Shown here is a 267-nucleotide sequence from Trogon melanurus, a member of the family "RNase MRP".

[Rfam]
RNA sequence: GGAUGUUCUGAAGACCUGCUCGCUAGGCCACGCACGGAGGACACUGGUUUCUCAUGGGCCACGCGCCCGCCUAGGGGAAAGUCCCCGGACCGCGGGCAGAGAGUGCCGGGCGCUGCGGGCGCCCUUGUCCGCUCCCACCUCACACAUUACCCCGCUGAGAAGCCCCCGGGCCGAGCGGAUGAGCGCGGGGUGGGCUCUCGUCACGGCCACAGAUACGCAGGUAGUGCGCAGGCGCACCAACAGAACGGGGCUCACUCUCAGGCCAUC
Numbered sequence: 001g002g003a004u005g006u007u008c009u010g011a012a013g014a015c016c017u018g019c020u021c022g023c024u025a026g027g028c029c030a031c032g033c034a035c036g037g038a039g040g041a042c043a044c045u046g047g048u049u050u051c052u053c054a055u056g057g058g059c060c061a062c063g064c065g066c067c068c069g070c071c072u073a074g075g076g077g078a079a080a081g082u083c084c085c086c087g088g089a090c091c092g093c094g095g096g097c098a099g100a101g102a103g104u105g106c107c108g109g110g111c112g113c114u115g116c117g118g119g120c121g122c123c124c125u126u127g128u129c130c131g132c133u134c135c136c137a138c139c140u141c142a143c144a145c146a147u148u149a150c151c152c153c154g155c156u157g158a159g160a161a162g163c164c165c166c167c168g169g170g171c172c173g174a175g176c177g178g179a180u181g182a183g184c185g186c187g188g189g190g191u192g193g194g195c196u197c198u199c200g201u202c203a204c205g206g207c208c209a210c211a212g213a214u215a216c217g218c219a220g221g222u223a224g225u226g227c228g229c230a231g232g233c234g235c236a237c238c239a240a241c242a243g244a245a246c247g248g249g250g251c252u253c254a255c256u257c258u259c260a261g262g263c264c265a266u267c
Stems, first nucleotide, its partner, number of pairs: 002267004007262005014222006023074006037053005080252002083250004095107004108124006126194001128192001133190004138185001141183001143181001152178004162171003224237005
The base pairs follow the family's consensus structure, which is taken from published work. RNase MRP is an enzymatically active ribonucleoprotein with two distinct roles in eukaryotes. Lineage of the source: Eukaryota > Teleostomi > Sauropsida > Dinosauria > Trogon.